[Rfam]
RNA sequence: UCGGCAAAGACAAUGAUGUAUCAAUCCAAGCACAUAUCUGAGAUGUAUGUGUGGAGAACACUAAACUGAGUCUUUCCCGG
Numbered sequence: 001u002c003g004g005c006a007a008a009g010a011c012a013a014u015g016a017u018g019u020a021u022c023a024a025u026c027c028a029a030g031c032a033c034a035u036a037u038c039u040g041a042g043a044u045g046u047a048u049g050u051g052u053g054g055a056g057a058a059c060a061c062u063a064a065a066c067u068g069a070g071u072c073u074u075u076c077c078c079g080g
Stems, first nucleotide, its partner, number of pairs: 001080004006075001008073004
This 80-nucleotide RNA from Oryctolagus cuniculus belongs to the Rfam family "Small nucleolar RNA SNORD121A". Rfam classes the family as a C/D-box small nucleolar RNA. A reference for the family is Yang et al. (2006), "snoSeeker: an advanced computational package for screening of guide and orphan snoRNA genes in the human genome", Nucleic Acids Res.